[Rfam]
Shown here is a 108-nucleotide RNA from Populus trichocarpa, a member of the family "MIR480 microRNA precursor family".
RNA sequence: UAAUCUAUUUGGGGCAAAUCCUCAUUUAGUUAUGACAGACUCAUACUUAACUGCUCAGAAUCACUUACUACUAUGUAAACAAUAACUUUUUAAGAUUUUAAUUGGAGU
Numbered sequence: 001u002a003a004u005c006u007a008u009u010u011g012g013g014g015c016a017a018a019u020c021c022u023c024a025u026u027u028a029g030u031u032a033u034g035a036c037a038g039a040c041u042c043a044u045a046c047u048u049a050a051c052u053g054c055u056c057a058g059a060a061u062c063a064c065u066u067a068c069u070a071c072u073a074u075g076u077a078a079a080c081a082a083u084a085a086c087u088u089u090u091u092a093a094g095a096u097u098u099u100a101a102u103u104g105g106a107g108u
Stems, first nucleotide, its partner, number of pairs: 004106004008101002012097001015094001018091001025085001027082001029080003
For this family Rfam cites "Novel and mechanical stress-responsive MicroRNAs in Populus trichocarpa that are absent from Arabidopsis" (Lu et al., Plant Cell, 2005). It scores 76 bits against the family's covariance model. Rfam links the family to the GO terms RISC complex and miRNA-mediated post-transcriptional gene silencing. Pairs were carried over by alignment from the consensus structure, which was predicted with WAR. Rfam 15.1 lists 3,070 matches to the family in 171 species.